[Rfam]
RNA sequence: ACUAAUCCCUGGGGGAGGUCAAAAGACCUGAGAGUUCCCGAUAAGGGAAGACCCCUUGAACCUGAUCCGGAUAAUACCGGCGGAGGGAAAGGGAGAGACUGAGUAA
Numbered sequence: 001a002c003u004a005a006u007c008c009c010u011g012g013g014g015g016a017g018g019u020c021a022a023a024a025g026a027c028c029u030g031a032g033a034g035u036u037c038c039c040g041a042u043a044a045g046g047g048a049a050g051a052c053c054c055c056u057u058g059a060a061c062c063u064g065a066u067c068c069g070g071a072u073a074a075u076a077c078c079g080g081c082g083g084a085g086g087g088a089a090a091g092g093g094a095g096a097g098a099c100u101g102a103g104u105a106a
Stems, first nucleotide, its partner, number of pairs: 006094005011055004017028004035049005061086003067080004
RNA: TPP riboswitch aptamer (THI element)
Organism: Thermodesulfovibrio yellowstonii